[Rfam]
RNA sequence: GCCUUGGUCGGAAACCAAGGCAGAAAGGGAG
Number, nucleotide and partner (000 for none) at each position: 001g021002c020003c019004u018005u017006g016007g015008u014009c000010g000011g000012a000013a000014a008015c007016c006017a005018a004019g003020g002021c001022a000023g000024a000025a000026a000027g000028g000029g000030a000031g000